[Rfam]
A member of the RNA family "Magnesium riboswitch aptamer (Magnesium responsive RNA element)" from Klebsiella sp. RIT-PI-d, 116 nucleotides long. The literature on the family includes a 2008 paper in FEMS Microbiol Lett by Spinelli et al., "Regulation of magnesium homeostasis in Salmonella: Mg(2+) targets the mgtA transcript for degradation by RNase E". The match comes from Rfam's covariance-model search (108 bits). Taxonomically the source falls in Klebsiella (Bacteria, Pseudomonadati, Enterobacterales, Enterobacteriaceae). The Magnesium sensor RNA element is a cis-regulatory element that regulates the expression of the magnesium transporter protein MgtA. It is located in the 5' UTR of this gene. The element adopts different structures depending on the presence or absence of Mg2+, this has the affect of regulating whether transcription reads through the mgtA coding region or stops within the 5' UTR. Pairs were carried over by alignment from the consensus structure, which is taken from published work.
RNA sequence: CUUACCGGAGGCUGUAUGGACCCUGAUCCCACACCUCUCCCGCGACGGAGAGCAAUAACCAUCCGGUAAGCCAGUUUUUUCACUGCCUUAGCGGAUCUGUAAGGCAGUGACGUCUU
Number, nucleotide and partner (000 for none) at each position: 001c070002u069003u068004a067005c066006c065007g064008g063009a062010g000011g060012c000013u000014g000015u000016a000017u031018g030019g029020a000021c000022c000023c000024u000025g000026a000027u000028c000029c019030c018031a017032c000033a000034c000035c000036u051037c050038u049039c048040c047041c000042g000043c000044g000045a000046c000047g040048g039049a038050g037051a036052g000053c000054a000055a000056u000057a000058a000059c000060c011061a000062u009063c008064c007065g006066g005067u004068a003069a002070g001071c000072c000073a000074g000075u000076u000077u000078u000079u000080u000081c000082a108083c107084u106085g105086c104087c103088u102089u101090a100091g000092c000093g000094g000095a000096u000097c000098u000099g000100u090101a089102a088103g087104g086105c085106a084107g083108u082109g000110a000111c000112g000113u000114c000115u000116u000